[Rfam]
RNA sequence: ACGCCCUGCUCGUGAUCGUCUUCUCAGCCUUCACGGGGCAGGCGGAAGAAAGGAGAGCCCCCGCCAGGACGUGACUGGCGGGGGCUCUCC
Numbered sequence: 001a002c003g004c005c006c007u008g009c010u011c012g013u014g015a016u017c018g019u020c021u022u023c024u025c026a027g028c029c030u031u032c033a034c035g036g037g038g039c040a041g042g043c044g045g046a047a048g049a050a051a052g053g054a055g056a057g058c059c060c061c062c063g064c065c066a067g068g069a070c071g072u073g074a075c076u077g078g079c080g081g082g083g084g085c086u087c088u089c090c
Stems, first nucleotide, its partner, number of pairs: 002044002005042007012034004018028002052090016
Shown here is a 90-nucleotide RNA from Streptomyces albus, a member of the family "sodF sRNA". The base pairs follow the family's consensus structure. For this family Rfam cites "Inverse regulation of Fe- and Ni-containing SOD genes by a Fur family regulator Nur through small RNA processed from 3'UTR of the sodF mRNA" (Kim et al., Nucleic Acids Res, 2014).